[Rfam]
RNA sequence: CGUUUCUGCUAGGGGUGCCUAUGGGCUGAGACAAGAAUGAUUUCUUGAUCCCUUUGAACCUGAUCUGGUUAAUACCAGCGGAGGGAAGUGGAAGAACGCAACC
Numbered sequence: 001c002g003u004u005u006c007u008g009c010u011a012g013g014g015g016u017g018c019c020u021a022u023g024g025g026c027u028g029a030g031a032c033a034a035g036a037a038u039g040a041u042u043u044c045u046u047g048a049u050c051c052c053u054u055u056g057a058a059c060c061u062g063a064u065c066u067g068g069u070u071a072a073u074a075c076c077a078g079c080g081g082a083g084g085g086a087a088g089u090g091g092a093a094g095a096a097c098g099c100a101a102c103c
Base pairs, nucleotide, nucleotide: 006091007090008089009088010087011053012052013051014050016047017026018025019024033046034045035044036043037042059084060083061082065078066077067076068075

This 103-nucleotide sequence from Gracilibacillus halotolerans belongs to the Rfam family "TPP riboswitch aptamer (THI element)". NCBI's taxonomy places the organism under Bacteria, Bacillota, Caryophanales, Bacillaceae, Gracilibacillus. A reference for the family is Serganov et al. (2006), "Structural basis for gene regulation by a thiamine pyrophosphate-sensing riboswitch", Nature. The base pairs follow the family's consensus structure, which is taken from published work.